The family of this 141-nucleotide RNA from Microthlaspi erraticum is "MIR168 microRNA precursor family". Rfam links the family to the GO terms RISC complex and miRNA-mediated post-transcriptional gene silencing. The family has 10 seed sequences and 518 matches in Rfam 15.1. On this family, see Reinhart et al., Genes Dev 2002: "MicroRNAs in plants".

[Rfam]
RNA sequence: UCACCGAUGGUCUCGGAUUCGCUUGGUGCAGGUCGGGAACUGAUUGGCUUGACACCGCCACGUGUUUUUUGUUCAUCGUUUGGCUUGUGAGCAGGAAUCAGCUCCCGCCUUGCAUCAACUGAAUCCGAGCCCGAGGUGAAA
Numbered sequence: 001u002c003a004c005c006g007a008u009g010g011u012c013u014c015g016g017a018u019u020c021g022c023u024u025g026g027u028g029c030a031g032g033u034c035g036g037g038a039a040c041u042g043a044u045u046g047g048c049u050u051g052a053c054a055c056c057g058c059c060a061c062g063u064g065u066u067u068u069u070u071g072u073u074c075a076u077c078g079u080u081u082g083g084c085u086u087g088u089g090a091g092c093a094g095g096a097a098u099c100a101g102c103u104c105c106c107g108c109c110u111u112g113c114a115u116c117a118a119c120u121g122a123a124u125c126c127g128a129g130c131c132c133g134a135g136g137u138g139a140a141a
Base pairs, nucleotide, nucleotide: 013128014127017124018123019122020121023118024117025116026115027114028113029112030111031110032109034107035106036105037104038103040101041100042099043098044097045096